The family of this 214-nucleotide RNA from Astyanax mexicanus is "Small nucleolar RNA U3". Clan: U3 clan. It scores 145 bits against the family's covariance model. From the family's description: Small nucleolar RNAs (snoRNAs) are involved in the processing and modification of rRNA in the nucleolus. Its family is annotated with nucleolus and RNA processing in the Gene Ontology. By type it is a C/D-box small nucleolar RNA. The base pairs follow the family's consensus structure, which is taken from published work. Rfam 15.1 lists 19,072 matches to the family in 1,215 species.

[Rfam]
RNA sequence: AAGACUAUACUUUCAGGGAUCAUUUCUAUAGUUUCUAACUUGGAAAAUUGUUCUGAAAGUGUUACGUCUCUCUACCCACGAUGACGAGUCGUGAUACUUCUUUCUGAGCGUGAAUCUGAUGGAGAGUAAUGAUUAAACUCAUCUGCUCUCUGUUGUUGAUGAGCGUUCCUGCUGUGUUUCACACUCUGGAAGAAGGAAGUAUAAUCAGAGUGGU
Numbered sequence: 001a002a003g004a005c006u007a008u009a010c011u012u013u014c015a016g017g018g019a020u021c022a023u024u025u026c027u028a029u030a031g032u033u034u035c036u037a038a039c040u041u042g043g044a045a046a047a048u049u050g051u052u053c054u055g056a057a058a059g060u061g062u063u064a065c066g067u068c069u070c071u072c073u074a075c076c077c078a079c080g081a082u083g084a085c086g087a088g089u090c091g092u093g094a095u096a097c098u099u100c101u102u103u104c105u106g107a108g109c110g111u112g113a114a115u116c117u118g119a120u121g122g123a124g125a126g127u128a129a130u131g132a133u134u135a136a137a138c139u140c141a142u143c144u145g146c147u148c149u150c151u152g153u154u155g156u157u158g159a160u161g162a163g164c165g166u167u168c169c170u171g172c173u174g175u176g177u178u179u180c181a182c183a184c185u186c187u188g189g190a191a192g193a194a195g196g197a198a199g200u201a202u203a204a205u206c207a208g209a210g211u212g213g214u
Stems, first nucleotide, its partner, number of pairs: 001041003007034001009032003015027004054061001076213004094202012108166003118154004124148004129142004169188001171185001173183004